[Rfam]
RNA sequence: CUGAAGGAUUAUAUCGAAGAGUCAAAUGAUAGAGUAACGUCUUGAAGGGCUCUCUCUAAGUCGAAUAGCACUCAAGUGAGUAAGGACAACAGUGUUAUAAGCUCGGCAAAAAGGCGUGAGAAUUUACCGAAGCAGUUCGGCUGCCGAAAGCCUACCCGCGAGGGUGGUGUAAAUCAUAAUGCUUGAGUUGAUUGG
Numbered sequence: 001c002u003g004a005a006g007g008a009u010u011a012u013a014u015c016g017a018a019g020a021g022u023c024a025a026a027u028g029a030u031a032g033a034g035u036a037a038c039g040u041c042u043u044g045a046a047g048g049g050c051u052c053u054c055u056c057u058a059a060g061u062c063g064a065a066u067a068g069c070a071c072u073c074a075a076g077u078g079a080g081u082a083a084g085g086a087c088a089a090c091a092g093u094g095u096u097a098u099a100a101g102c103u104c105g106g107c108a109a110a111a112a113g114g115c116g117u118g119a120g121a122a123u124u125u126a127c128c129g130a131a132g133c134a135g136u137u138c139g140g141c142u143g144c145c146g147a148a149a150g151c152c153u154a155c156c157c158g159c160g161a162g163g164g165u166g167g168u169g170u171a172a173a174u175c176a177u178a179a180u181g182c183u184u185g186a187g188u189u190g191a192u193u194g195g
Stems, first nucleotide, its partner, number of pairs: 018053006031043002034040001054187003061106004065098008076087002113183005122174006128146002134142002150168003154165004
A member of the RNA family "Group II catalytic intron D1-D4-5" from Filobacillus milosensis, 195 nucleotides long. Rfam 15.1 lists 720 matches to the family in 418 species. The organism belongs to Filobacillus, within Bacteria. Rfam describes the family as follows. Group II introns are found in rRNA, tRNA and mRNA of organelles in fungi, plants and protists, and also in mRNA in bacteria. The pairing is the family consensus, mapped onto this sequence.